[Rfam]
RNA sequence: GCUUUCGAAGGGAUAGCCACCCUUCCUCUUUCAGGCUCUAGUUUAAAGAGCCUGAAAGAGGAAGGGUGGCUAUCCCUUCGAAAGU
Numbered sequence: 001g002c003u004u005u006c007g008a009a010g011g012g013a014u015a016g017c018c019a020c021c022c023u024u025c026c027u028c029u030u031u032c033a034g035g036c037u038c039u040a041g042u043u044u045a046a047a048g049a050g051c052c053u054g055a056a057a058g059a060g061g062a063a064g065g066g067u068g069g070c071u072a073u074c075c076c077u078u079c080g081a082a083a084g085u
Base pairs, nucleotide, nucleotide: 002084003083006080007079009077010076011075012074013073014072015071016070017069018068019067020066021065023063024062025061026060027059028058029057030056031055032054034052035051036050037049038048039047